[Rfam]
RNA: Arthropod 7SK RNA
Organism: Pieris macdunnoughi
RNA sequence: GGAAGUGUAUUCUUUAGUGUGAUGCCACUGCCUGUCCAGAGGUCACUAGCUCAUGUUGGUAGAUCUUCAGAUCGUGAUGUCACGCGCUCGUUGUCAGGCUACGCUUCUUGUAACGUGCGCUGCGAACGUUCGCCCGGUAUACGGCUGCGACGUCACAGUGGCGCACUUUCCUUGGGCAGCCUUCUAAACCACGCGGUUUUAAUCAAAUCGUUAGCUUAGCUCCGGUUAAAUCUUGAACACUUCCAUAAUGAGGCGGCGAGAAAGAAACUCUCGGAUGCCCGUUUUUUGA
Numbered sequence: 001g002g003a004a005g006u007g008u009a010u011u012c013u014u015u016a017g018u019g020u021g022a023u024g025c026c027a028c029u030g031c032c033u034g035u036c037c038a039g040a041g042g043u044c045a046c047u048a049g050c051u052c053a054u055g056u057u058g059g060u061a062g063a064u065c066u067u068c069a070g071a072u073c074g075u076g077a078u079g080u081c082a083c084g085c086g087c088u089c090g091u092u093g094u095c096a097g098g099c100u101a102c103g104c105u106u107c108u109u110g111u112a113a114c115g116u117g118c119g120c121u122g123c124g125a126a127c128g129u130u131c132g133c134c135c136g137g138u139a140u141a142c143g144g145c146u147g148c149g150a151c152g153u154c155a156c157a158g159u160g161g162c163g164c165a166c167u168u169u170c171c172u173u174g175g176g177c178a179g180c181c182u183u184c185u186a187a188a189c190c191a192c193g194c195g196g197u198u199u200u201a202a203u204c205a206a207a208u209c210g211u212u213a214g215c216u217u218a219g220c221u222c223c224g225g226u227u228a229a230a231u232c233u234u235g236a237a238c239a240c241u242u243c244c245a246u247a248a249u250g251a252g253g254c255g256g257c258g259a260g261a262a263a264g265a266a267a268c269u270c271u272c273g274g275a276u277g278c279c280c281g282u283u284u285u286u287u288g289a
Stems, first nucleotide, its partner, number of pairs: 001244008019083005032070003038066001041065004045060004252279003